The family of this 78-nucleotide sequence from Novosphingobium barchaimii is "Makes More Granules Regulator RNA (mmgR)".
[Rfam]
Nucleotides: 078
Stems, first nucleotide, its partner, number of pairs: 008018004042063009
Number, partner (000 for none) and nucleotide at each position: 001000c002000g003000g004000c005000c006000g007000u008018g009017c010016c011015u012000u013000u014000c015011a016010g017009g018008c019000a020000u021000c022000c023000u024000c025000u026000c027000c028000c029000a030000a031000a032000a033000c034000u035000u036000a037000c038000a039000a040000a041000a042063g043062g044061g045060c046059u047058g048057g049056u050055c051000u052000g053000c054000c055050g056049a057048c058047u059046g060045g061044c062043c063042c064000u065000u066000u067000c068000u069000u070000u071000u072000u073000g074000c075000g076000g077000g078000a
The organism belongs to Novosphingobium barchaimii, within Bacteria.
Pairs were carried over by alignment from the consensus structure.
SuhB later renamed mmgR (makes more granules regulator) was a putative non-coding RNA found multiple times in the Agrobacterium tumefaciens genome and related alpha-proteobacteria.